[Rfam]
Nucleotides: 304
Base pairs, nucleotide, nucleotide: 001040002039003038004023005022006021007020008019009018028037029036030035044303045302046301047300048299049298050297051296052295053294056291057290058288060286061283062282063281065279066278068277069276070275071274074271075270076269077268078263079262081260082259084257085256087255090252093250098249099248100247101246102245103244105242107237108236110235111234112233113232114231116228117227118226119225121223122222123221124220126165127164128163129162130161132159133158134157135156136155137154138153139152140151141150142149143148166171173218174217175216176215177214182211184209185208186207191202192201193200
Number, partner (000 for none) and nucleotide at each position: 001040g002039c003038u004023g005022a006021g007020c008019u009018a010000a011000g012000u013000c014000a015000u016000g017000c018009u019008a020007g021006c022005u023004u024000g025000u026000g027000a028037c029036c030035c031000a032000a033000a034000u035030g036029g037028g038003g039002g040001u041000a042000c043000c044303a045302a046301g047300g048299u049298g050297g051296u052295g053294g054000g055000a056291c057290a058288u059000c060286g061283g062282u063281u064000c065279a066278a067000c068277c069276c070275a071274u072000u073000c074271g075270g076269c077268a078263g079262g080000a081260c082259u083000u084257g085256c086000u087255g088000u089000u090252g091000c092000a093250a094000u095000u096000u097000g098249c099248u100247g101246g102245c103244u104000c105242g106000c107237c108236c109000g110235u111234u112233c113232c114231a115000a116228g117227u118226u119225g120000u121223g122222a123221g124220u125000u126165g127164g128163g129162c130161u131000c132159u133158g134157u135156g136155g137154u138153u139152c140151g141150g142149g143148c144000u145000u146000a147000a148143g149142c150141u151140u152139g153138g154137g155136c156135c157134a158133c159132g160000a161130g162129g163128c164127c165126c166171u167000u168000a169000g170000a171166g172000c173218g174217g175216a176215g177214g178000g179000c180000a181000a182211u183000g184209c185208g186207u187000g188000a189000g190000g191202c192201u193200g194000g195000u196000u197000u198000c199000a200193c201192a202191g203000a204000g205000c206000a207186g208185c209184g210000a211182a212000a213000a214177c215176c216175u217174c218173c219000c220124a221123c222122u223121c224000u225119c226118a227117a228116c229000a230000g231114u232113g233112g234111a235110a236108g237107g238000a239000u240000u241000a242105c243000u244103g245102g246101c247100c248099g249098g250093u251000g252090c253000u254000c255087c256085g257084c258000u259082a260081g261000c262079c263078c264000a265000g266000a267000u268077u269076g270075u271074c272000u273000c274071a275070u276069g277068g278066u279065u280000u281063g282062g283061u284000a285000c286060c287000a288058g289000u290057u291056g292000a293000a294053c295052c296051a297050c298049c299048a300047c301046u302045u303044u304000u
This 304-nucleotide RNA from Malus baccata belongs to the Rfam family "Plant signal recognition particle RNA". It is annotated as a non-coding RNA gene. Rfam 15.1 lists 4,988 matches to the family in 266 species. A search with the family's covariance model found it, with a score of 237 bits. Clan: SRP clan. On this family, see Batey et al., Science 2000: "Crystal structure of the ribonucleoprotein core of the signal recognition particle".